This 78-nucleotide sequence belongs to the Rfam family "DUF3800-X RNA". Rfam classes the family as a small RNA. Rfam's curators put it in the seed alignment.

RNA sequence: UGGUGGUUAAACCACUAGAACUCCGCCCCAAAGGAUGAUGCCCGUGGAUGCGGGAUGGGACGAAGGGGAGGACCACCA
Numbered sequence: 001u002g003g004u005g006g007u008u009a010a011a012c013c014a015c016u017a018g019a020a021c022u023c024c025g026c027c028c029c030a031a032a033g034g035a036u037g038a039u040g041c042c043c044g045u046g047g048a049u050g051c052g053g054g055a056u057g058g059g060a061c062g063a064a065g066g067g068g069a070g071g072a073c074c075a076c077c078a
Base pairs, nucleotide, nucleotide: 001078002077003076004075005074006073022072023071024070026068027067028066029065041054042053043052044051045050